[Rfam]
RNA sequence: ACACGGGAAAGGAGGUGGUCCGAAGAAUGAAUUCUUGUGGGACGCGUGAGGUGGCUGCGCGCUAGCAGCAACCGUCAGCGAAGUACUGCUGGCAAAUCCAACGCAGACACCCGACCCGCAGGUGAUCCGGUCAUCACGUCCACCGGAGCGGGCCUCAUCCCGAGGUCCACACCUGCGGGUCGCUGCAU
Numbered sequence: 001a002c003a004c005g006g007g008a009a010a011g012g013a014g015g016u017g018g019u020c021c022g023a024a025g026a027a028u029g030a031a032u033u034c035u036u037g038u039g040g041g042a043c044g045c046g047u048g049a050g051g052u053g054g055c056u057g058c059g060c061g062c063u064a065g066c067a068g069c070a071a072c073c074g075u076c077a078g079c080g081a082a083g084u085a086c087u088g089c090u091g092g093c094a095a096a097u098c099c100a101a102c103g104c105a106g107a108c109a110c111c112c113g114a115c116c117c118g119c120a121g122g123u124g125a126u127c128c129g130g131u132c133a134u135c136a137c138g139u140c141c142a143c144c145g146g147a148g149c150g151g152g153c154c155u156c157a158u159c160c161c162g163a164g165g166u167c168c169a170c171a172c173c174u175g176c177g178g179g180u181c182g183c184u185g186c187a188u
Base pairs, nucleotide, nucleotide: 015058016057017056018055019054061093062092063091064090065089066088068086070084073080074079112182113181114180115179116178117177118176119175120174121173122172123171124170126147127146128145129144130143131142